RNA sequence: UCUUUAUACAUAAGGCACCUCGUUAAAUUAGUUUAUUGGUAUUUAUUAAAUUAUACGAAAGGGCCAUAUUUUUUAAAGUAUUUUAAUAUAAAAUUACAUAUAAGCACAAAGUAUUUUGGCGAGACUCUUGAGGGAACAGGACAAGCUGAAGACUACAGGCUGAAGCUGUCCGAUAAGAAAGCGAGCCAACAAUACGAAGUAUUGUAAAUAAAUAGCCAGUAAAUG
Numbered sequence: 001u002c003u004u005u006a007u008a009c010a011u012a013a014g015g016c017a018c019c020u021c022g023u024u025a026a027a028u029u030a031g032u033u034u035a036u037u038g039g040u041a042u043u044u045a046u047u048a049a050a051u052u053a054u055a056c057g058a059a060a061g062g063g064c065c066a067u068a069u070u071u072u073u074u075a076a077a078g079u080a081u082u083u084u085a086a087u088a089u090a091a092a093a094u095u096a097c098a099u100a101u102a103a104g105c106a107c108a109a110a111g112u113a114u115u116u117u118g119g120c121g122a123g124a125c126u127c128u129u130g131a132g133g134g135a136a137c138a139g140g141a142c143a144a145g146c147u148g149a150a151g152a153c154u155a156c157a158g159g160c161u162g163a164a165g166c167u168g169u170c171c172g173a174u175a176a177g178a179a180a181g182c183g184a185g186c187c188a189a190c191a192a193u194a195c196g197a198a199g200u201a202u203u204g205u206a207a208a209u210a211a212a213u214a215g216c217c218a219g220u221a222a223a224u225g
Stems, first nucleotide, its partner, number of pairs: 004211004008205003029038002039064002042061003046058002048052001079201006089096002099108001101106001111195005116189005126178004131174001134171001136169002139166001144161004
RNA: S. aureus tsr24 small RNA